Annotation:
Shown here is a 52-nucleotide sequence, a member of the family "Glutamine riboswitch aptamer (glnA leader)". For this family Rfam cites "Bacterial aptamers that selectively bind glutamine" (Ames and Breaker, RNA Biol, 2011). Rfam's curators put it in the seed alignment. Gene Ontology term of the family: glutamine binding.
[Rfam]
RNA sequence: UUCGUUCAACCCCAAAAGGGUCGGAAGUAGGCAUCAGCUGAAGGAACGCUUA
Number, nucleotide and partner (000 for none) at each position: 001u000002u000003c048004g047005u046006u045007c044008a000009a021010c020011c019012c018013c000014a000015a000016a000017a000018g012019g011020g010021u009022c000023g000024g049025a000026a000027g000028u000029a000030g039031g038032c037033a000034u000035c000036a000037g032038c031039u030040g000041a000042a000043g000044g007045a006046a005047c004048g003049c024050u000051u000052a000